[Rfam]
Shown here is a 367-nucleotide RNA sequence from Parabacteroides sp. CAG:409, a member of the family "Bacterial RNase P class A". By type it is a ribozyme. The source organism's lineage runs through Bacteria, Pseudomonadati, Bacteroidota, Bacteroidia and Parabacteroides. Gene Ontology terms of the family: tRNA processing, ribonuclease P activity and dimeric ribonuclease P complex.
RNA sequence: GCAGUUUGCCAGUCUGUCGCUCGUCAGCUUUGGCUGAUGUGAGGAAAGUCCGGGCAACACAGAGCACUAUACUUCUUAACGGGAAGCAGGCCGCGAGGUUUGAGUAGCGUAACAGAAAAUAACCGCCAUACUUCGGCGUGGUAAGGGUGAAAAGGUGAGGUAAAAGCUCACCGGGUCUUUUGGCAACAGAAGAUGCCGUACGCCUUAUAGGUUGUAAGGUCAUGUAUAUCGGCGCACGUAGGAUGGCUCGUCCGAUGCCGAGGGGUAGACCGCUUGAGCCUGUUGGUGACAACAGGAUUAGAUAAAUGGCAGACACUUUAUAUUUCGGUAUAAAGGACAGAACCCGGCUUAUCGGCAAACUGCAUUU
Number, nucleotide and partner (000 for none) at each position: 001g363002c362003a361004g360005u359006u358007u357008g356009c355010c354011a352012g314013u313014c312015u311016g310017u309018c308019g000020c041021u000022c039023g038024u037025c036026a035027g034028c033029u000030u000031u000032g000033g028034c027035u026036g025037a024038u023039g022040u000041g020042a000043g000044g000045a000046a350047a349048g348049u000050c347051c346052g345053g344054g343055c214056a213057a212058c211059a000060c000061a000062g249063a248064g247065c246066a000067c210068u209069a208070u207071a206072c086073u085074u084075c083076u082077u000078a000079a000080c000081g000082g076083g075084a074085a073086g072087c102088a000089g100090g099091c098092c097093g000094c000095g000096a000097g092098g091099u090100u089101u000102g087103a205104g204105u000106a000107g203108c202109g201110u200111a199112a000113c000114a000115g000116a000117a000118a000119a000120u000121a000122a000123c146124c145125g142126c141127c140128a139129u138130a000131c136132u000133u000134c000135g000136g131137c000138g129139u128140g127141g126142u125143a000144a000145g124146g123147g000148u000149g000150a000151a000152a000153a000154g172155g171156u170157g169158a168159g167160g000161u000162a000163a000164a000165a000166g000167c159168u158169c157170a156171c155172c154173g000174g196175g194176u193177c192178u191179u190180u189181u188182g187183g000184c000185a000186a000187c182188a181189g180190a179191a178192g177193a176194u175195g000196c174197c000198g000199u111200a110201c109202g108203c107204c104205u103206u071207a070208u069209a068210g067211g058212u057213u056214g055215u000216a000217a000218g271219g270220u269221c268222a000223u000224g000225u000226a000227u000228a000229u261230c260231g259232g258233c257234g000235c000236a000237c000238g000239u000240a000241g253242g252243a251244u250245g000246g065247c064248u063249c062250g244251u243252c242253c241254g000255a000256u000257g233258c232259c231260g230261a229262g000263g000264g000265g000266u000267a000268g221269a220270c219271c218272g000273c000274u000275u000276g000277a000278g000279c296280c295281u294282g293283u292284u291285g290286g000287u000288g000289a000290c285291a284292a283293c282294a281295g280296g279297a000298u000299u000300a000301g000302a000303u000304a000305a000306a000307u000308g018309g017310c016311a015312g014313a013314c012315a000316c000317u000318u000319u000320a000321u000322a000323u000324u000325u000326c000327g000328g000329u000330a000331u000332a000333a000334a000335g000336g000337a000338c000339a000340g000341a000342a000343c054344c053345c052346g051347g050348c048349u047350u046351a000352u011353c000354g010355g009356c008357a007358a006359a005360c004361u003362g002363c001364a000365u000366u000367u000